mir-7 microRNA precursor family: an 88-nucleotide RNA sequence from Xenopus tropicalis.
For this family Rfam cites "microRNAs: tiny regulators with great potential" (Ambros, Cell, 2001).
Taxonomically the source falls in Silurana (Eukaryota, Craniata, Sarcopterygii, Pipoidea).
The family's consensus secondary structure was predicted with PFOLD.
Rfam describes the family as follows. This family represents the microRNA (miRNA) precursor mir-7.
[Rfam]
RNA sequence: CUGGGUCGGUUUGGAAGACUAGUGAUUUUGUUGUUUUUAUAAAAGUUUGUCACAAACAGCAAAUCGUAGUCUCCACUCUGCCCCAGGA
Numbered sequence: 001c002u003g004g005g006u007c008g009g010u011u012u013g014g015a016a017g018a019c020u021a022g023u024g025a026u027u028u029u030g031u032u033g034u035u036u037u038u039a040u041a042a043a044a045g046u047u048u049g050u051c052a053c054a055a056a057c058a059g060c061a062a063a064u065c066g067u068a069g070u071c072u073c074c075a076c077u078c079u080g081c082c083c084c085a086g087g088a
Base pairs, nucleotide, nucleotide: 001086002085003084004083005082007080008079009078012075013074014073016072017071018070019069020068022067023066024065025064026063027062028061030060031059032058033057034056035055